[Rfam]
RNA sequence: AUGCAUCCAGUAGGAAUUCAACCUACGAAUUCGUCAAUUAUGAGGUGGGUGCUUUAACCAUUCAGACAUGGAUGC
Numbered sequence: 001a002u003g004c005a006u007c008c009a010g011u012a013g014g015a016a017u018u019c020a021a022c023c024u025a026c027g028a029a030u031u032c033g034u035c036a037a038u039u040a041u042g043a044g045g046u047g048g049g050u051g052c053u054u055u056a057a058c059c060a061u062u063c064a065g066a067c068a069u070g071g072a073u074g075c
Stems, first nucleotide, its partner, number of pairs: 003075006010026005040069003046064006
The record is a 75-nucleotide RNA from Malus baccata, which matches "Plastid-ycf2 5UTR RNA" in Rfam.
The family's consensus secondary structure was predicted with LocARNA.
It scores 84 bits against the family's covariance model.
By type it is a cis-regulatory element.
The literature on the family includes a 2023 paper in Plant Commun by Richter et al., "Retrograde signaling in plants: A critical review focusing on the GUN pathway and beyond".
Plastid ycf2 is a non-coding RNA (ncRNA) recognised in plastids. It was found in the prime untranslated region (5UTR) of ycf2 genes, it presents a tRNA-like motif which suggests it can be involved in mRNA maturation, particularly involved in defining the precise 5' end of the transcript.
Rfam 15.1 lists 3,521 matches to the family in 417 species.